[Rfam]
RNA sequence: GAGUUGUAUGUGAGAAUUGGAGGGAAUUAAAUCAAUUUUAUUCCAUUAACUUUUCUGUUCUUACAUAUUUGAUUUAAUUUCCUCCAAUAUCUUACCUCCAAUUC
Number, nucleotide and partner (000 for none) at each position: 001g000002a000003g000004u101005u100006g099007u000008a097009u000010g000011u094012g093013a092014g091015a000016a088017u087018u086019g085020g084021a083022g000023g081024g080025a079026a078027u077028u076029a075030a074031a000032u072033c071034a070035a069036u000037u000038u000039u000040a000041u000042u000043c000044c000045a000046u000047u000048a000049a000050c000051u000052u000053u000054u000055c000056u000057g000058u000059u000060c000061u000062u000063a000064c000065a000066u000067a000068u000069u035070u034071g033072a032073u000074u030075u029076a028077a027078u026079u025080u024081c023082c000083u021084c020085c019086a018087a017088u016089a000090u000091c014092u013093u012094a011095c000096c000097u008098c000099c006100a005101a004102u000103u000104c000